[Rfam]
RNA sequence: AUCUACAACGGGCAAACCCUGAGAAAUCGGGGGACGCAAAGCCAUGGGCCUACGGCGAAAGCUACGGCUGCCAGGUUGCACAA
Numbered sequence: 001a002u003c004u005a006c007a008a009c010g011g012g013c014a015a016a017c018c019c020u021g022a023g024a025a026a027u028c029g030g031g032g033g034a035c036g037c038a039a040a041g042c043c044a045u046g047g048g049c050c051u052a053c054g055g056c057g058a059a060a061g062c063u064a065c066g067g068c069u070g071c072c073a074g075g076u077u078g079c080a081c082a083a
Base pairs, nucleotide, nucleotide: 012037013036017032018031019030020029021028022027040077041076042075043074045073046072047071048068049067050066055062056061
Rfam assigns this 83-nucleotide RNA from Paenalicyclobacillus mengziensis to the family "c-di-GMP-I riboswitch aptamer". GEMM was predicted in a large-scale screen for bacterial structured RNA regulatory elements. The family's consensus secondary structure is taken from published work.